[Rfam]
RNA sequence: CACCAGGUUGAUUCUGCCUGACGUAGACGCUUACUCUAAGAUUAACCCAUGCAUGUUUAUUGAAUAUAAAGAAAAGACGAACAGCUCAGUAACUCUUAUUUGAUUUGAUGUAUUAGGACUCUAACUAUGUUAAAUUAUAGGUAACAAUAAUACAAUAAGAAUAAGAUCUAUCAGUUAGUUGUUAAGGUAAUGGCUUAACAAGACUAUGACGGAUAACGGUAUUACUUUGUAAUAUUCCGGAGAAGGAGCCUGAGAGAUUGCUACUAAGUCUAAGGAUUGCAGCAGGGGCGAAACUUGACCUAUGAUAUUAUAUUGAGGCAGUUAUGAGUAGUAUUUUAUAAUUAUUGUAGUAUUGUAAGUACAUAUUACAAGAUAAAUCGGAGGGCAAAUCGAGUGCCAGCAGCCGCGGUAAUACUUGUUCCGAUAGUGUGUAUGAUGAUUGAUG
Dot-bracket structure: ...(((((.......))))).((((.((((((((((.(((.....(((.(((..((...((...(....)...)).))......(((......((((((((..((...(((((((....(....(((((......)))))......))))))))..))))))))))(((....(((..((((((((.......)))))))))))......)))...(((..((((...))))....)))))).((.(((..........))).)).((((....))))...)))))).).....(.(.(...(((((...))))).).)).))..)))))......................(((((.........)))))......((((((.......((((.....((....)).......)))))))))).))))).))))..........